[Rfam]
RNA sequence: AUGCAUGUUGGGACCUAUGGUCACGGUUGUCCAUUCUCUUUCAUUGUAGAGUUUGGACAUAUACUAACAUGCUAGAUUAACUUUUGGAGUUAUCAGGGCCACCAGUCUCUCGAGAACAGCCUGAGUCGGUAGUAUAAUACUCCAACAUGU
Dot-bracket structure: ..((((((.....................(..(((((..........)))))..)...........)))))).............((((........((..((((.((.........)).))).)...)).........)))).......
The record is a 150-nucleotide RNA sequence from Gadus morhua, which matches "Small nucleolar RNA U109" in Rfam.
By type it is an H/ACA-box small nucleolar RNA.
The match comes from Rfam's covariance-model search (56 bits).
Rfam links the family to the GO terms nucleolus and RNA processing.
The base pairs follow the family's consensus structure, which was predicted with WAR.